Background: This 311-nucleotide sequence from Oryza sativa belongs to the Rfam family "Plant signal recognition particle RNA".
RNA sequence: GCCGAGCCAGGUAGCGUUGGCUUGUCACCCGAGCGGGGGCAAUAAGGUGGUGUUGGAUGCCUGGUCGUUUGCGCUUGGGGUCUGCGCCUGUGGUUUGCACUAUGCGGCCCGCCCGUUCCAAGUUGCGUAGCGUGUGUGGGGCGCCUGGGCGAAGGCUCGAGCGUCCCUGCACCUAGAGUGGCGGGUAUUGCGUGAGGCUGGUUUCACAGAGCAGCGAGUACCGCCCGCUUCCAACGGUGGAAGGAUAACGGGCCGCUGCAGCCCUGGCCCGCUUCCGGCCCAAGUGCCUUCCAUGGCAGACCACCACCUUU
Numbered sequence: 001g002c003c004g005a006g007c008c009a010g011g012u013a014g015c016g017u018u019g020g021c022u023u024g025u026c027a028c029c030c031g032a033g034c035g036g037g038g039g040c041a042a043u044a045a046g047g048u049g050g051u052g053u054u055g056g057a058u059g060c061c062u063g064g065u066c067g068u069u070u071g072c073g074c075u076u077g078g079g080g081u082c083u084g085c086g087c088c089u090g091u092g093g094u095u096u097g098c099a100c101u102a103u104g105c106g107g108c109c110c111g112c113c114c115g116u117u118c119c120a121a122g123u124u125g126c127g128u129a130g131c132g133u134g135u136g137u138g139g140g141g142c143g144c145c146u147g148g149g150c151g152a153a154g155g156c157u158c159g160a161g162c163g164u165c166c167c168u169g170c171a172c173c174u175a176g177a178g179u180g181g182c183g184g185g186u187a188u189u190g191c192g193u194g195a196g197g198c199u200g201g202u203u204u205c206a207c208a209g210a211g212c213a214g215c216g217a218g219u220a221c222c223g224c225c226c227g228c229u230u231c232c233a234a235c236g237g238u239g240g241a242a243g244g245a246u247a248a249c250g251g252g253c254c255g256c257u258g259c260a261g262c263c264c265u266g267g268c269c270c271g272c273u274u275c276c277g278g279c280c281c282a283a284g285u286g287c288c289u290u291c292c293a294u295g296g297c298a299g300a301c302c303a304c305c306a307c308c309u310u311u
Stems, first nucleotide, its partner, number of pairs: 001040003004023007028037003044310009058298002061295001067291001071287002075282001079280004084269001087266001090263001092262001094261002098258002104256008113244002116242005122235004127231001129229003134172005139166006146159005173178001180225005189218001191216003198209003
NCBI's taxonomy places the organism under Eukaryota, Embryophyta, Tracheophyta, Poales, Oryza sativa.